[Rfam]
RNA: purD RNA motif
RNA sequence: AUAUAUAUAUAUGUGUGUGUGUGUGUGUGUGUAUUUAUAAACACACACACACACACAUAUAUAUAUAUAAUAUUUUACGGGCUUUUACGGGCCGGGCCGGGUUUUUGCGGGCUUUUGGCG
Numbered sequence: 001a002u003a004u005a006u007a008u009a010u011a012u013g014u015g016u017g018u019g020u021g022u023g024u025g026u027g028u029g030u031g032u033a034u035u036u037a038u039a040a041a042c043a044c045a046c047a048c049a050c051a052c053a054c055a056c057a058u059a060u061a062u063a064u065a066u067a068u069a070a071u072a073u074u075u076u077a078c079g080g081g082c083u084u085u086u087a088c089g090g091g092c093c094g095g096g097c098c099g100g101g102u103u104u105u106u107g108c109g110g111g112c113u114u115u116u117g118g119c120g
Stems, first nucleotide, its partner, number of pairs: 003064007017050005023044004078095001080093005